Shown here is a 129-nucleotide RNA from Ailuropoda melanoleuca, a member of the family "Small nucleolar RNA SNORA20".
RNA sequence: CUUCCCAUUGAUUUGCUGCUCUAGUCUUCCGGUGCUAGGAGCGGUUAUACGCAUGGGAGAGAACAACGUUAGGCCGUGGUAGAUGGAGAUGAGUGACCGUCUCAUCGCUCCUGCGCGGCCCGGACACUG
Numbered sequence: 001c002u003u004c005c006c007a008u009u010g011a012u013u014u015g016c017u018g019c020u021c022u023a024g025u026c027u028u029c030c031g032g033u034g035c036u037a038g039g040a041g042c043g044g045u046u047a048u049a050c051g052c053a054u055g056g057g058a059g060a061g062a063a064c065a066a067c068g069u070u071a072g073g074c075c076g077u078g079g080u081a082g083a084u085g086g087a088g089a090u091g092a093g094u095g096a097c098c099g100u101c102u103c104a105u106c107g108c109u110c111c112u113g114c115g116c117g118g119c120c121c122g123g124a125c126a127c128u129g
Base pairs, nucleotide, nucleotide: 003058004057005056006055007054008053015045016044017043018042019041020040021039022037023036026034069123070122072120073119074118075117076116079114080113081112086108088106089105090104091103092102093101

Rfam classes the family as an H/ACA-box small nucleolar RNA. ACA20 is a member of the H/ACA class of snoRNA that guide the sites of modification of uridines to pseudouridines. Its Rfam clan is "SNORA20 clan". Rfam 15.1 lists 437 matches to the family in 157 species. The base pairs follow the family's consensus structure, which was predicted with ILM.